[Rfam]
RNA: SAM-I/IV (S-adenosyl methionine) riboswitch aptamer
Organism: Rhinopithecimicrobium faecis
RNA sequence: CAUAAGUAUUCAGAAUCGUUUAGACGGUACCAACCGAGUGUAGACACCACGGUGGUAAUUUAAUACGGGUUAACAACCAAAAAUAACGUUUACA
Number, nucleotide and partner (000 for none) at each position: 001c000002a000003u000004a000005a000006g066007u065008a064009u063010u062011c000012a000013g000014a000015a028016u027017c026018g025019u024020u000021u000022a000023g000024a019025c018026g017027g016028u015029a056030c055031c054032a000033a000034c052035c051036g050037a000038g047039u046040g000041u000042a089043g000044a000045c000046a039047c038048c000049a000050c036051g035052g034053u000054g031055g030056u029057a000058a000059u000060u000061u000062a010063a009064u008065a007066c006067g000068g078069g077070u076071u075072a000073a000074c000075a071076a070077c069078c068079a000080a000081a000082a000083a000084u000085a000086a000087c000088g000089u042090u000091u000092a000093c000094a000